[Rfam]
RNA sequence: UUUUGCAUCUCUGGAGAGCGGCAGCGGCCAGCGCCCGCAUGAUCGACGCGCAGGCCGGCUGCCCACCGAAGGGGCAAGCGCAGCGGCGAACCGGAUGGAACACCAUCCGGCCAGCCAGGUCGAGUGAGCCGCCAGGCUCACGGGACCGCGCCAUCUCUCAGGUAAAAGGACAGAGGGGAUCAU
Numbered sequence: 001u002u003u004u005g006c007a008u009c010u011c012u013g014g015a016g017a018g019c020g021g022c023a024g025c026g027g028c029c030a031g032c033g034c035c036c037g038c039a040u041g042a043u044c045g046a047c048g049c050g051c052a053g054g055c056c057g058g059c060u061g062c063c064c065a066c067c068g069a070a071g072g073g074g075c076a077a078g079c080g081c082a083g084c085g086g087c088g089a090a091c092c093g094g095a096u097g098g099a100a101c102a103c104c105a106u107c108c109g110g111c112c113a114g115c116c117a118g119g120u121c122g123a124g125u126g127a128g129c130c131g132c133c134a135g136g137c138u139c140a141c142g143g144g145a146c147c148g149c150g151c152c153a154u155c156u157c158u159c160a161g162g163u164a165a166a167a168g169g170a171c172a173g174a175g176g177g178g179a180u181c182a183u
Stems, first nucleotide, its partner, number of pairs: 006178001008176006020063006065163003068159002072157003078151004

Glycine riboswitch aptamer: a 183-nucleotide RNA sequence from Pararobbsia alpina. It scores 44 bits against the family's covariance model. Taxonomically the source falls in Pararobbsia (Bacteria, Pseudomonadati, Pseudomonadota, Burkholderiaceae).